[Rfam]
RNA sequence: GAACUGCGUCGGCCUGAACGGCCGCGCGGACCGGGGAACCACCGCAGUACUGGGGUGAAUCACGCCCGCGUUCACCGGACGCGGGUGCGUAGGGCGACUUCGACCCGAACCCGUCAGCUAACUCGGUAGGCGGACGCGAAGACAGGA
Numbered sequence: 001g002a003a004c005u006g007c008g009u010c011g012g013c014c015u016g017a018a019c020g021g022c023c024g025c026g027c028g029g030a031c032c033g034g035g036g037a038a039c040c041a042c043c044g045c046a047g048u049a050c051u052g053g054g055g056u057g058a059a060u061c062a063c064g065c066c067c068g069c070g071u072u073c074a075c076c077g078g079a080c081g082c083g084g085g086u087g088c089g090u091a092g093g094g095c096g097a098c099u100u101c102g103a104c105c106c107g108a109a110c111c112c113g114u115c116a117g118c119u120a121a122c123u124c125g126g127u128a129g130g131c132g133g134a135c136g137c138g139a140a141g142a143c144a145g146g147a
Stems, first nucleotide, its partner, number of pairs: 004029006030127006040052002053112003061089001063087011092106003
Shown here is a 147-nucleotide RNA from Blastococcus haudaquaticus, a member of the family "c-di-AMP riboswitch aptamer (ydaO/yuaA leader)". The source organism's lineage runs through Bacteria, Actinomycetota, Geodermatophilales, Geodermatophilaceae and Blastococcus.